[Rfam]
RNA sequence: GCUUCCCCUAGAGGUGUUGCAGGUGUGGCUGCUGUGCCACAUUUGUGUCAUUAGGGGGCAGAGAGAAAGAGGCUAUGUCUACGCUCGGUGUUCUACCCUGUGAACACUCGAAUGAUUAUUAGUCUGACACG
Dot-bracket structure: .((.(((((((.(((...((((.((((((......)))))).))))))).))))).)).))........((((((......((.(((((((((........))))).)))).)).....))))))......